This 68-nucleotide RNA sequence from Centropus unirufus belongs to the Rfam family "Selenocysteine insertion sequence 1". The base pairs follow the family's consensus structure, which is taken from published work. Rfam classes the family as a cis-regulatory element. The source organism's lineage runs through Eukaryota, Metazoa, Teleostomi, Theropoda and Centropus.
RNA sequence: GCUCCGCCCCAUGAAGGCCUGUACUGAAGACAGCACGCUGUUAGUACAGGCUGGAUGCUUCUCGCAGC
Numbered sequence: 001g002c003u004c005c006g007c008c009c010c011a012u013g014a015a016g017g018c019c020u021g022u023a024c025u026g027a028a029g030a031c032a033g034c035a036c037g038c039u040g041u042u043a044g045u046a047c048a049g050g051c052u053g054g055a056u057g058c059u060u061c062u063c064g065c066a067g068c
Stems, first nucleotide, its partner, number of pairs: 001068003005064001016052010031040003